[Rfam]
RNA: Glycine riboswitch aptamer
Organism: Paenirhizobium selenitireducens
RNA sequence: CGCAUCCCUGCAGGGAGAAACCGGUUCACUCCGGUGCCGAAGGAGCAACCGCCCCGGAAACUCUCAGGCAAAAGGACCGCAGGGCGUCG
Numbered sequence: 001c002g003c004a005u006c007c008c009u010g011c012a013g014g015g016a017g018a019a020a021c022c023g024g025u026u027c028a029c030u031c032c033g034g035u036g037c038c039g040a041a042g043g044a045g046c047a048a049c050c051g052c053c054c055c056g057g058a059a060a061c062u063c064u065c066a067g068g069c070a071a072a073a074g075g076a077c078c079g080c081a082g083g084g085c086g087u088c089g
Base pairs, nucleotide, nucleotide: 006084007083008082009081010080011079013078014077021034022033023032024031036069037068038067039065040064043063044062045061049057050056